[Rfam]
RNA sequence: ACUAAAAGAGGUGGAAAUUAGGGAGUCCACACGCUUACAGCUUUAGAAGUAGAACACAGCUAAAGUCAAUAGUGAUAGAUACCCAUUGCUAGGGAUAGCAUUGAUAAGGAUAAGAGAUGAGGGGAGUUUCUCUCCCUCCUUUUAGU
Dot-bracket structure: ((((((((..(((((.....[[[[.))))).((((...................................)))........................................)....(((((....]]]]..)))))))))))))
The record is a 146-nucleotide RNA sequence, which matches "skipping-rope RNA" in Rfam. The family's consensus secondary structure is taken from published work. By type it is a small RNA.